[Rfam]
RNA sequence: CUAAAGACAAUGACAGGGAAAAGUAGCUUUGUGUAAUCCAUUUAGGGAGAAAAUGUCGCAGACUGGAAGCAUUUUUAUGGAGAAGGAAGUGAAAUUCACCCCUCGAGUCAGCAUCGGGACCGUUUAGUUAAACGUAAAGAUGCUUCGGUGAAGAGCCGUUAUUUGUAAUAAGUGAACAUAAUGAAAGUGAAUUAUGUUAAUUAGGGUGGUACCGCGAUGAUAACCUCGUCCCUUUU
Numbered sequence: 001c002u003a004a005a006g007a008c009a010a011u012g013a014c015a016g017g018g019a020a021a022a023g024u025a026g027c028u029u030u031g032u033g034u035a036a037u038c039c040a041u042u043u044a045g046g047g048a049g050a051a052a053a054u055g056u057c058g059c060a061g062a063c064u065g066g067a068a069g070c071a072u073u074u075u076u077a078u079g080g081a082g083a084a085g086g087a088a089g090u091g092a093a094a095u096u097c098a099c100c101c102c103u104c105g106a107g108u109c110a111g112c113a114u115c116g117g118g119a120c121c122g123u124u125u126a127g128u129u130a131a132a133c134g135u136a137a138a139g140a141u142g143c144u145u146c147g148g149u150g151a152a153g154a155g156c157c158g159u160u161a162u163u164u165g166u167a168a169u170a171a172g173u174g175a176a177c178a179u180a181a182u183g184a185a186a187g188u189g190a191a192u193u194a195u196g197u198u199a200a201u202u203a204g205g206g207u208g209g210u211a212c213c214g215c216g217a218u219g220a221u222a223a224c225c226u227c228g229u230c231c232c233u234u235u236u
Stems, first nucleotide, its partner, number of pairs: 007108002015103004026090005039079003049076008110144006146158003175198007203233004214229004
T-box leader: a 236-nucleotide RNA from Bacillus sp. FJAT-49736. It is annotated as a cis-regulatory leader. It scores 118 bits against the family's covariance model. Uncharged tRNA acts as the effector for transcription antitermination of genes in the T-box leader family. T-boxes are found upstream of many aminoacyl-tRNA synthetase genes and some amino acid biosynthetic genes usually in Gram-positive bacteria. The anticodon of a specific tRNA base pairs to a specifier sequence within the T-box motif, and the NCCA acceptor tail of the tRNA base pairs to a conserved bulge in the T-box antiterminator hairpin. The source organism's lineage runs through Bacteria, Bacillati, Bacillota, Bacilli and Bacillus. The family has 48 seed sequences and 19,395 matches in Rfam 15.1.